[Rfam]
RNA sequence: GAAACAGUCAAACCUGUCCUUGAUCUUACUAGCUCUAUUAUAUACCGGGUGGAAUGAAUAACAUGUUCUUUUGCUCUGUGCAUGGAGAUGCCACCAUGCGCUCUCGGGCUCUUCUGUUUUUGCUCUUCGUGCUUCUGCCUAUGCUGCCCGC
Numbered sequence: 001g002a003a004a005c006a007g008u009c010a011a012a013c014c015u016g017u018c019c020u021u022g023a024u025c026u027u028a029c030u031a032g033c034u035c036u037a038u039u040a041u042a043u044a045c046c047g048g049g050u051g052g053a054a055u056g057a058a059u060a061a062c063a064u065g066u067u068c069u070u071u072u073g074c075u076c077u078g079u080g081c082a083u084g085g086a087g088a089u090g091c092c093a094c095c096a097u098g099c100g101c102u103c104u105c106g107g108g109c110u111c112u113u114c115u116g117u118u119u120u121u122g123c124u125c126u127u128c129g130u131g132c133u134u135c136u137g138c139c140u141a142u143g144c145u146g147c148c149c150g151c
Stems, first nucleotide, its partner, number of pairs: 006026002008023001010021002046150007054142003060133001062131004073123002077116002082112001084110002090101002
The record is a 151-nucleotide RNA sequence from Paslahepevirus balayani, which matches "Hepatitis E virus cis-reactive element" in Rfam. Pairs were carried over by alignment from the consensus structure, which is taken from published work. From the family's description: This family represents a cis-reactive element from Hepatitis E virus which is thought to be essential for 'some step in gene expression'. For this family Rfam cites "The open reading frame 3 gene of hepatitis E virus contains a cis-reactive element and encodes a protein required for infection of macaques" (Graff et al., J Virol, 2005). NCBI's taxonomy places the organism under Viruses, Riboviria, Orthornavirae, Hepeviridae, Paslahepevirus balayani. The family's RNA type in Rfam is cis-regulatory element. Its family is annotated with viral gene expression in the Gene Ontology.